The family of this 600-nucleotide part of an RNA from Indibacter alkaliphilus is "Bacterial small subunit ribosomal RNA". The family's consensus secondary structure is taken from published work. The organism belongs to Indibacter alkaliphilus, within Bacteria. It scores 1536 bits against the family's covariance model. Gene Ontology terms of the family: structural constituent of ribosome and ribosome.
RNA sequence: UGACGGGGGUCCGCACAAGCGGUGGAGCAUGUGGUUUAAUUCGAUGAUACGCGAGGAACCUUACCCGGGCUAGAAUGUGACCGCAUCACCCAGAGAUGGGUGAGUCCGCAAGGACGGAAAACAAGGUGCUGCAUGGCUGUCGUCAGCUCGUGCCGUGAGGUGUUGGGUUAAGUCCCGCAACGAGCGCAACCCCUAUUGUCAGUUGCCAUCAGGUUAAGCUGGGGACUCUGACAAGACUGCCUGCGCAAGCAGAGAGGAAGGAGGGGACGACGUCAAGUCAUCAUGGCCCUUACGCCCGGGGCGACACACGUGCUACAAUGGCGCAUACAGCGGGUAGCUACCUGGCAACAGGAUGCCAACCUCUAAAAGUGCGUCUCAGUUCGGAUCGGGGCCUGCAACCCGGCCCCGUGAAGCUGGAAUCGCUAGUAAUCGCGCAUCAGCCAUGGCGCGGUGAAUACGUUCCCGGACCUUGUACACACCGCCCGUCAAGCCAUGGAAGUCGGGUAGACCUGAAGGCGGUAACCGCGAGGAGCCGUCAAGGGUAGAACCGGUAACUGGGGCUAAGUCGUAACAAGGUAGCCGUACCGGAAGGUGCGGCUG
Dot-bracket structure: (((((.(((((((.((..((((((.((((((((((....((((........))))........(((((((.....(((..(((..(((((((....))))))).(((....))))))...))).((.((((..((((((.((...(((((((((....)))..((((......))))..)))))).....((((.(((((((...((..(((......)))))....)))))))..((.(((((....)))).).)).....))))....)).).)))...))))))))....)))))))...)).)))))))).)...(((((((.....(((..((...(((....)))...))....))).....)))))))......(....(((((((........)))))))....).....))))).....(((((((..........)))))))......))...)))))))))).))..(.(..((...((((.(((..(((((.(..(((....((((((..((....)).))))))...)))..).)))))..))).))))....))...)..).((((((((((....))))))))))